[Rfam]
RNA sequence: GGAUAAUCCCGGGCAACCGGGGAACGGAUGAUCGAAGCUGGUUCGGUCACCCCCUGCGCGCAGCGCUCAAAAACCGCUGGCAGCGAGGCAUAUGUCACCAGCUCCUCUGGUCGGGGUCGUGCCCGUCCAGUAAACACGAAAUCAGGAGCUGAGCGGUGAGGCGCGAAGAAGAAGCCGCGUUCGAGCCGAGUCAGGUACGGGGAGCGUUUCGAGCCCCGCACUGAUACCGUUACCCAGAGGGUUAUGGCUGCUACGGUAGUACCAGCACAUGCUGGCGUCCUUCGGAUCGGGACCACCCCGCCGACAAGGCUUGGUCGUGAGAUCGAGCGCGCAAAAAGGGCGCAAGUAUGGGAAACGCGCGAGCCAGGCAAAGCUCGCCCCCGUUUCUGAUUUGGGGCGGCGCGACAAACCGCGUCACUCAACUGCAAAGGUAAACGCAGCCUGAGAGUUAAGAGGUCAGACCCGUCGCAUGGGGCCAACGCUCGGCCAAAAGCUGAGGCCGUCCCUAUGCCCAAGGUGCCGACGCGAAAGACAGAUUGCAGGCGUGUCAGCACCCUGUCCGGCGCGCUGUUCUCGGCAGAGAACAGACGAACUGGGCAAAGAGGCCUCACUCAACAGACUUCAGCCGGAAACGGCCGGAGCGGUCCCGCUAUGAGACCGAGACCUUCGCAUGCCGCGGAGAGUAGCGUCGGGGAGCUUGCAGCCCGCGAAAGCGAGAGCGCCCAAUGCAGGCAUCCGGGAAGAGAGCGUGGCGAACUCC
Numbered sequence: 001g002g003a004u005a006a007u008c009c010c011g012g013g014c015a016a017c018c019g020g021g022g023a024a025c026g027g028a029u030g031a032u033c034g035a036a037g038c039u040g041g042u043u044c045g046g047u048c049a050c051c052c053c054c055u056g057c058g059c060g061c062a063g064c065g066c067u068c069a070a071a072a073a074c075c076g077c078u079g080g081c082a083g084c085g086a087g088g089c090a091u092a093u094g095u096c097a098c099c100a101g102c103u104c105c106u107c108u109g110g111u112c113g114g115g116g117u118c119g120u121g122c123c124c125g126u127c128c129a130g131u132a133a134a135c136a137c138g139a140a141a142u143c144a145g146g147a148g149c150u151g152a153g154c155g156g157u158g159a160g161g162c163g164c165g166a167a168g169a170a171g172a173a174g175c176c177g178c179g180u181u182c183g184a185g186c187c188g189a190g191u192c193a194g195g196u197a198c199g200g201g202g203a204g205c206g207u208u209u210c211g212a213g214c215c216c217c218g219c220a221c222u223g224a225u226a227c228c229g230u231u232a233c234c235c236a237g238a239g240g241g242u243u244a245u246g247g248c249u250g251c252u253a254c255g256g257u258a259g260u261a262c263c264a265g266c267a268c269a270u271g272c273u274g275g276c277g278u279c280c281u282u283c284g285g286a287u288c289g290g291g292a293c294c295a296c297c298c299c300g301c302c303g304a305c306a307a308g309g310c311u312u313g314g315u316c317g318u319g320a321g322a323u324c325g326a327g328c329g330c331g332c333a334a335a336a337a338g339g340g341c342g343c344a345a346g347u348a349u350g351g352g353a354a355a356c357g358c359g360c361g362a363g364c365c366a367g368g369c370a371a372a373g374c375u376c377g378c379c380c381c382c383g384u385u386u387c388u389g390a391u392u393u394g395g396g397g398c399g400g401c402g403c404g405a406c407a408a409a410c411c412g413c414g415u416c417a418c419u420c421a422a423c424u425g426c427a428a429a430g431g432u433a434a435a436c437g438c439a440g441c442c443u444g445a446g447a448g449u450u451a452a453g454a455g456g457u458c459a460g461a462c463c464c465g466u467c468g469c470a471u472g473g474g475g476c477c478a479a480c481g482c483u484c485g486g487c488c489a490a491a492a493g494c495u496g497a498g499g500c501c502g503u504c505c506c507u508a509u510g511c512c513c514a515a516g517g518u519g520c521c522g523a524c525g526c527g528a529a530a531g532a533c534a535g536a537u538u539g540c541a542g543g544c545g546u547g548u549c550a551g552c553a554c555c556c557u558g559u560c561c562g563g564c565g566c567g568c569u570g571u572u573c574u575c576g577g578c579a580g581a582g583a584a585c586a587g588a589c590g591a592a593c594u595g596g597g598c599a600a601a602g603a604g605g606c607c608u609c610a611c612u613c614a615a616c617a618g619a620c621u622u623c624a625g626c627c628g629g630a631a632a633c634g635g636c637c638g639g640a641g642c643g644g645u646c647c648c649g650c651u652a653u654g655a656g657a658c659c660g661a662g663a664c665c666u667u668c669g670c671a672u673g674c675c676g677c678g679g680a681g682a683g684u685a686g687c688g689u690c691g692g693g694g695a696g697c698u699u700g701c702a703g704c705c706c707g708c709g710a711a712a713g714c715g716a717g718a719g720c721g722c723c724c725a726a727u728g729c730a731g732g733c734a735u736c737c738g739g740g741a742a743g744a745g746a747g748c749g750u751g752g753c754g755a756a757c758u759c760c
Stems, first nucleotide, its partner, number of pairs: 008021005026052002029049008061079005099151008112125004117139005154188004160182002162179003171210005194222003198218005225258005232242003246442006285302001287300001289298003309328008351388006359378006401414004446613003453609004469510007482498006518553003522549006558598006566590002569586007620641004625636004642660005649687004665681006696733007703720002706715003745759003
Background
This 760-nucleotide RNA sequence from Opitutaceae bacterium EW11 belongs to the Rfam family "MISL RNA".